[Rfam]
RNA sequence: UUGCUGUGGCUUAUGGUGGAUGCCUGGGCACGCAUGACCGAUGAAAGACGUGUGGGGCUGCGAUAAGCCUCGGGGAGUUGCCGACAGGGCGUUGAUCCGAGGGUGUCUGAAUGGGGUAACCUACUGGCUGUUGUGGGCUGGUACCGCGUGUGUGCGGGGGGUACGCAGGGAAGUGAAACAUCUUAGUACCUGUAGGAAAAGAUAUUCUGUGAGUAGUGGCGAGCGAAAGCGGAGGAGACUAAACCAUGCGCGUGGUAGAGGCGCCUGCUGAUGCGUGUGUGGUGUUGUGGGGUUUCCCGUGGGGUGCAGGCGUGCCCCGUGCUAGUGAUAAAGUUGGAUAUGAGGUGAACAUGGUUGAAUACAUGACCGUAGAGGGUGAUGGUCCCGUAGCCGAAAGUGUCUGGCCUGGUUGUGGAGUGUCCCCGAGUAGGACGAGACUCGUGGAAUCUCGUGUGAAUCUGCCCUGACCGUGGGGUAAGUCUAAAUAUGUGUGCGUGACCGAUAGUGGACGAGUACCGUGAGGGAAAGGUGAAAAGUAGCCCGGGAGGGUAGUGAAAUAGUUCCUGAAACCAUAGGCUGUCAAU
Numbered sequence: 001u002u003g004c005u006g007u008g009g010c011u012u013a014u015g016g017u018g019g020a021u022g023c024c025u026g027g028g029c030a031c032g033c034a035u036g037a038c039c040g041a042u043g044a045a046a047g048a049c050g051u052g053u054g055g056g057g058c059u060g061c062g063a064u065a066a067g068c069c070u071c072g073g074g075g076a077g078u079u080g081c082c083g084a085c086a087g088g089g090c091g092u093u094g095a096u097c098c099g100a101g102g103g104u105g106u107c108u109g110a111a112u113g114g115g116g117u118a119a120c121c122u123a124c125u126g127g128c129u130g131u132u133g134u135g136g137g138c139u140g141g142u143a144c145c146g147c148g149u150g151u152g153u154g155c156g157g158g159g160g161g162u163a164c165g166c167a168g169g170g171a172a173g174u175g176a177a178a179c180a181u182c183u184u185a186g187u188a189c190c191u192g193u194a195g196g197a198a199a200a201g202a203u204a205u206u207c208u209g210u211g212a213g214u215a216g217u218g219g220c221g222a223g224c225g226a227a228a229g230c231g232g233a234g235g236a237g238a239c240u241a242a243a244c245c246a247u248g249c250g251c252g253u254g255g256u257a258g259a260g261g262c263g264c265c266u267g268c269u270g271a272u273g274c275g276u277g278u279g280u281g282g283u284g285u286u287g288u289g290g291g292g293u294u295u296c297c298c299g300u301g302g303g304g305u306g307c308a309g310g311c312g313u314g315c316c317c318c319g320u321g322c323u324a325g326u327g328a329u330a331a332a333g334u335u336g337g338a339u340a341u342g343a344g345g346u347g348a349a350c351a352u353g354g355u356u357g358a359a360u361a362c363a364u365g366a367c368c369g370u371a372g373a374g375g376g377u378g379a380u381g382g383u384c385c386c387g388u389a390g391c392c393g394a395a396a397g398u399g400u401c402u403g404g405c406c407u408g409g410u411u412g413u414g415g416a417g418u419g420u421c422c423c424c425g426a427g428u429a430g431g432a433c434g435a436g437a438c439u440c441g442u443g444g445a446a447u448c449u450c451g452u453g454u455g456a457a458u459c460u461g462c463c464c465u466g467a468c469c470g471u472g473g474g475g476u477a478a479g480u481c482u483a484a485a486u487a488u489g490u491g492u493g494c495g496u497g498a499c500c501g502a503u504a505g506u507g508g509a510c511g512a513g514u515a516c517c518g519u520g521a522g523g524g525a526a527a528g529g530u531g532a533a534a535a536g537u538a539g540c541c542c543g544g545g546a547g548g549g550u551a552g553u554g555a556a557a558u559a560g561u562u563c564c565u566g567a568a569a570c571c572a573u574a575g576g577c578u579g580u581c582a583a584u
Base pairs, nucleotide, nucleotide: 007579008578009577010576011575012574013573014572015571016570022564023529024528027500028499029497030496031495032494033493034492035491037488038160039159046108047107048106049062050061051060068102069101070100071099072098073097074096077090078089079088113122114121115120123142124141125140126139127138128137129136144157145156146155147154148153164195165193166192167191168190169189175182176181205485206233207232208231209230210229216224217223236482237481238480239479244282245281246280247279248278249277250276251275252274253273254272289424290423291422294417295416296415297414331407333405334404335403336402337401338400339399340398341397344392345391346390350365351364352363353362368372374386375385376384430454432452433451434450435449436448437447461476462475463474464473465472516523517522539550540549541548542547
This 584-nucleotide part of an RNA from Scardovia inopinata belongs to the Rfam family "Bacterial large subunit ribosomal RNA". A reference for the family is Yusupov et al. (2001), "Crystal structure of the ribosome at 5.5 A resolution", Science.